RNA: PyrR binding site
Organism: Halanaerobium sp. DL-01
RNA sequence: AAGUCCUUUAAAUCGGUCCAGAGAGGCUGAUAAGGAGCUCUAAGGUUUUUAUACCUCUUAGAGAGUAGCUAACUUCUUAUCAGCUGUCUGGUGAGAAGUUUUUUAAA
Numbered sequence: 001a002a003g004u005c006c007u008u009u010a011a012a013u014c015g016g017u018c019c020a021g022a023g024a025g026g027c028u029g030a031u032a033a034g035g036a037g038c039u040c041u042a043a044g045g046u047u048u049u050u051a052u053a054c055c056u057c058u059u060a061g062a063g064a065g066u067a068g069c070u071a072a073c074u075u076c077u078u079a080u081c082a083g084c085u086g087u088c089u090g091g092u093g094a095g096a097a098g099u100u101u102u103u104u105a106a107a
Base pairs, nucleotide, nucleotide: 004036005035006034007033008032013030014029015028016027017026018025040061041060042059043058044057045056048053071100072099073098074097075096076095077094078093079092080091081090082089